Rfam assigns this 108-nucleotide sequence from Pongo pygmaeus to the family "mir-1260b microRNA precursor family". Its family is annotated with RISC complex and miRNA-mediated post-transcriptional gene silencing in the Gene Ontology. The base pairs follow the family's consensus structure, which was predicted with RNAalifold. Rfam's curators put it in the seed alignment.
[Rfam]
RNA sequence: GUGGCUGCUGCUCUCCGUUUAUCCCACCACUGCCACCAUUAUUGCUACUGUUCAGCAGGUGCUGCUGGUGGUGAUGGUGAUAGUCUGGUGGGGGCAGUGGGGCUGCUG
Numbered sequence: 001g002u003g004g005c006u007g008c009u010g011c012u013c014u015c016c017g018u019u020u021a022u023c024c025c026a027c028c029a030c031u032g033c034c035a036c037c038a039u040u041a042u043u044g045c046u047a048c049u050g051u052u053c054a055g056c057a058g059g060u061g062c063u064g065c066u067g068g069u070g071g072u073g074a075u076g077g078u079g080a081u082a083g084u085c086u087g088g089u090g091g092g093g094g095c096a097g098u099g100g101g102g103c104u105g106c107u108g
Base pairs, nucleotide, nucleotide: 007106008105010103011102012101013100014099015097017095018094022093023092024091025090026089027088028087029084030083031082032081034079035078036077037076038075039074040073041072042071043070044069045068053067054066055065056064057063058062